[Rfam]
RNA sequence: CAUUGAUCUGUGAUGCUACGAAAUUCUGCGUUAUCUAUCUGCAAUUUCCGGCCUCGGAAUUGAGGAAGAGCAAUAUACGACUGAGAUCUAUA
Number, nucleotide and partner (000 for none) at each position: 001c000002a091003u090004u000005g088006a087007u086008c000009u000010g000011u000012g000013a000014u000015g000016c000017u000018a000019c000020g000021a000022a000023a000024u000025u000026c000027u000028g000029c000030g000031u000032u000033a000034u000035c000036u000037a000038u000039c000040u000041g000042c000043a000044a000045u000046u000047u000048c000049c000050g000051g000052c000053c000054u000055c000056g000057g000058a000059a000060u000061u000062g000063a000064g000065g000066a000067a000068g000069a000070g000071c000072a000073a000074u000075a000076u000077a000078c000079g000080a000081c000082u000083g000084a000085g000086a007087u006088c005089u000090a003091u002092a000
About this RNA:
Small nucleolar RNA snoR27: a 92-nucleotide RNA sequence from Cuscuta campestris. Lineage of the source: Eukaryota > Streptophyta > Euphyllophyta > Magnoliopsida > Cuscuta sect. Cleistogrammica. The match comes from Rfam's covariance-model search (49 bits). The family's consensus secondary structure was predicted with WAR. By type it is a C/D-box small nucleolar RNA.